[Rfam]
RNA: Small nucleolar RNA R21
Organism: Abrus precatorius
RNA sequence: UUUCCCUAUGAUGAUUUAUAAUUUUGAAAGUAGUGGACUGAAUUCCCUUGAAGAGAAGUGAAAUCUGAGGGAUG
Number, nucleotide and partner (000 for none) at each position: 001u074002u000003u072004c071005c070006c069007u000008a000009u000010g000011a000012u000013g000014a000015u000016u000017u000018a000019u000020a000021a000022u000023u000024u000025u000026g000027a000028a000029a000030g000031u000032a000033g000034u000035g000036g000037a000038c000039u000040g000041a000042a000043u000044u000045c000046c000047c000048u000049u000050g000051a000052a000053g000054a000055g000056a000057a000058g000059u000060g000061a000062a000063a000064u000065c000066u000067g000068a000069g006070g005071g004072a003073u000074g001